RNA sequence: GAUCAAGAGCGUCAGCUACAUCUGCCCCGGCACGCUGACCGGCAACCGUGUCUCGCACAACGGUGCUCCCCGAGGGAAGAUCGGUCCGCGCGCUGCCCGAGCGGCUUCUCGCGCGCGGGAAACUUGCGAC
Numbered sequence: 001g002a003u004c005a006a007g008a009g010c011g012u013c014a015g016c017u018a019c020a021u022c023u024g025c026c027c028c029g030g031c032a033c034g035c036u037g038a039c040c041g042g043c044a045a046c047c048g049u050g051u052c053u054c055g056c057a058c059a060a061c062g063g064u065g066c067u068c069c070c071c072g073a074g075g076g077a078a079g080a081u082c083g084g085u086c087c088g089c090g091c092g093c094u095g096c097c098c099g100a101g102c103g104g105c106u107u108c109u110c111g112c113g114c115g116c117g118g119g120a121a122a123c124u125u126g127c128g129a130c
Stems, first nucleotide, its partner, number of pairs: 001082004009040001011039006023032002041067003046063003050058002085119009

SAM (S-adenosyl methionine) riboswitch aptamer: a 130-nucleotide sequence from Corynebacterium testudinoris. Gene Ontology terms of the family: S-adenosylmethionine metabolic process and regulation of gene expression. Rfam describes the family as follows. SAM-IV is a mRNA element that regulates gene expression via direct sensing of S-adenosylmethionine (SAM or AdoMet). SAM-IV riboswitches share conserved nucleotide positions with the previously described SAM-I riboswitches sequence analysis and molecular recognition experiments suggest that SAM-I and SAM-IV riboswitches share similar ligand binding sites, but have different scaffolds. NCBI's taxonomy places the organism under Bacteria, Actinomycetota, Mycobacteriales, Corynebacteriaceae, Corynebacterium. A search with the family's covariance model found it, with a score of 71 bits.